[Rfam]
Annotation
The family of this 131-nucleotide sequence from Myotis lucifugus is "Small Cajal body specific RNA 8". The sequence is in the family's curated seed alignment. Rfam describes the family as follows. scaRNAs are a specific class of small nuclear RNAs which localise to the Cajal bodies and guide the modification of RNA polymerase II transcribed spliceosomal RNAs U1, U2, U4, U5 and U12. U92 belong to the H/ACA box class of guide RNAs as it has the predicted hairpin-hinge-hairpin-tail structure, conserved H/ACA-box motifs and is found associated with GAR1. Rfam classes the family as a small Cajal body RNA. The organism belongs to Myotis, within Eukaryota. The literature on the family includes a 2002 paper in EMBO J by Darzacq et al., "Cajal body-specific small nuclear RNAs: a novel class of 2'-O-methylation and pseudouridylation guide RNAs". The family's consensus secondary structure is taken from published work.
RNA sequence: UGGGAGGCAGAUACACAAAUUGAGCUGCAGUACUGCUCUAAUUGUCACCAUACCUCCGUAGAAUAAACUGCCUUUUGAUGACCGGGACGAAUUGAGAGAAAUCGUAACGGACAGAUACGGGGCAGACAGUU
Numbered sequence: 001u002g003g004g005a006g007g008c009a010g011a012u013a014c015a016c017a018a019a020u021u022g023a024g025c026u027g028c029a030g031u032a033c034u035g036c037u038c039u040a041a042u043u044g045u046c047a048c049c050a051u052a053c054c055u056c057c058g059u060a061g062a063a064u065a066a067a068c069u070g071c072c073u074u075u076u077g078a079u080g081a082c083c084g085g086g087a088c089g090a091a092u093u094g095a096g097a098g099a100a101a102u103c104g105u106a107a108c109g110g111a112c113a114g115a116u117a118c119g120g121g122g123c124a125g126a127c128a129g130u131u
Base pairs, nucleotide, nucleotide: 003057004056005055006054007053015045016044017043018042022038023037024036025035068125069124070123071122072121073120074119082110083109084108087105088104089103090102